[Rfam]
RNA sequence: ACCACUGAGCCAUCUCUCCAGCCCCUAAAAGCCUUCUUUAAAUCAAACAAUAGGGGCUGGGGAGAUGGCUCAGUGGA
Numbered sequence: 001a002c003c004a005c006u007g008a009g010c011c012a013u014c015u016c017u018c019c020a021g022c023c024c025c026u027a028a029a030a031g032c033c034u035u036c037u038u039u040a041a042a043u044c045a046a047a048c049a050a051u052a053g054g055g056g057c058u059g060g061g062g063a064g065a066u067g068g069c070u071c072a073g074u075g076g077a
Base pairs, nucleotide, nucleotide: 002076003075004074005073006072007071008070009069010068011067012066013065014064015063016062017061018060019059020058021057022056023055024054
RNA: mir-3473 microRNA precursor family